Description:
Bacterial small signal recognition particle RNA: a 98-nucleotide RNA sequence from Aliivibrio fischeri. Rfam's curators put it in the seed alignment.

RNA sequence: CCCUGGUCCUCCCGCAACACUAACUCGUGAACUCGGUCAGGCCCGGAAGGGAGCAGCCGCAGCGGGCGACGUGUGUGCCGGGAUGUGGCUGGGGCUUC
Numbered sequence: 001c002c003c004u005g006g007u008c009c010u011c012c013c014g015c016a017a018c019a020c021u022a023a024c025u026c027g028u029g030a031a032c033u034c035g036g037u038c039a040g041g042c043c044c045g046g047a048a049g050g051g052a053g054c055a056g057c058c059g060c061a062g063c064g065g066g067c068g069a070c071g072u073g074u075g076u077g078c079c080g081g082g083a084u085g086u087g088g089c090u091g092g093g094g095c096u097u098c
Base pairs, nucleotide, nucleotide: 004091005090006089007088008087010083011082012081013080014079015075017074018073019072020071024066025065026064027063028062034059035058036057037056042051043050044049
By type it is a non-coding RNA gene.
The source organism's lineage runs through Bacteria, Pseudomonadati, Pseudomonadota, Aliivibrio and Aliivibrio fischeri.